RNA sequence: UCCGUAGCGAUGCGGAAUCUGAAGGAAGCUCGAGGAAAAUCUCUGGUCUGACGAACAGAAAUCAUAUAGGAGGCAGUGCACGAGGAUAAGGUUGCAAAAGAAACUGAAGUCCAAUAGCUAAUGGAACAAUCGUGUGAUGUAUAUAUGGCAGAUAGAUGGAGACAAAGAGUUCGCAC
Numbered sequence: 001u002c003c004g005u006a007g008c009g010a011u012g013c014g015g016a017a018u019c020u021g022a023a024g025g026a027a028g029c030u031c032g033a034g035g036a037a038a039a040u041c042u043c044u045g046g047u048c049u050g051a052c053g054a055a056c057a058g059a060a061a062u063c064a065u066a067u068a069g070g071a072g073g074c075a076g077u078g079c080a081c082g083a084g085g086a087u088a089a090g091g092u093u094g095c096a097a098a099a100g101a102a103a104c105u106g107a108a109g110u111c112c113a114a115u116a117g118c119u120a121a122u123g124g125a126a127c128a129a130u131c132g133u134g135u136g137a138u139g140u141a142u143a144u145a146u147g148g149c150a151g152a153u154a155g156a157u158g159g160a161g162a163c164a165a166a167g168a169g170u171u172c173g174c175a176c
Base pairs, nucleotide, nucleotide: 001016002015003014004013005012006011028176031173032172040162041161042160043159044158045157046153047152048151049150050149062148063147064146065145066144067143073140074139075138077136078135079134080133081132082131083130084112085111086110087109090105091104092103093102
Shown here is a 176-nucleotide sequence from Aerococcus sp. HMSC10H05, a member of the family "Group II catalytic intron D1-D4-3". From the family's description: Group II introns are found in rRNA, tRNA and mRNA of organelles in fungi, plants and protists, and also in mRNA in bacteria. Gene Ontology term of the family: Group II intron splicing. The base pairs follow the family's consensus structure. The source organism's lineage runs through Bacteria, Bacillati, Bacillota, Bacilli and Aerococcus.